Plastid-psbA-1 3UTR RNA: a 119-nucleotide RNA sequence from Papaver nudicaule. By type it is a cis-regulatory element. The literature on the family includes a 2023 paper in Plant Commun by Richter et al., "Retrograde signaling in plants: A critical review focusing on the GUN pathway and beyond". Clan: Plastid-psbA 3UTR RNA clan. Rfam's curators write: Plastid psbA-1 is a non-coding RNA (ncRNA) present in plastids. It was identified in inverted repeat sequences in the 3 prime untranslate region (3UTR) of photosystem II quinone-binding protein (psbA). NCBI's taxonomy places the organism under Eukaryota, Streptophytina, Tracheophyta, Magnoliopsida, Papaver.
Nucleotides: 119
Base pairs, nucleotide, nucleotide: 008022010020011019066119067118068117069116070115071114072113073112074111075110076109077108078107080105081104082103084101085100086099087098088097
Number, partner (000 for none) and nucleotide at each position: 001000a002000c003000g004000a005000a006000g007000u008022u009000c010020c011019a012000a013000c014000a015000a016000u017000c018000a019011u020010g021000u022008g023000u024000a025000a026000a027000g028000g029000u030000a031000c032000a033000u034000u035000u036000u037000u038000u039000a040000u041000g042000g043000a044000a045000a046000u047000a048000a049000a050000a051000a052000u053000a054000c055000u056000a057000a058000a059000u060000c061000g062000a063000a064000a065000u066119g067118a068117a069116g070115g071114a072113g073112c074111a075110a076109u077108a078107c079000c080105g081104a082103c083000c084101c085100u086099c087098u088097u089000a090000u091000u092000u093000u094000a095000u096000c097088a098087a099086g100085a101084g102000g103082g104081u105080c106000g107078g108077u109076a110075u111074u112073g113072c114071u115070u116069c117068u118067u119066c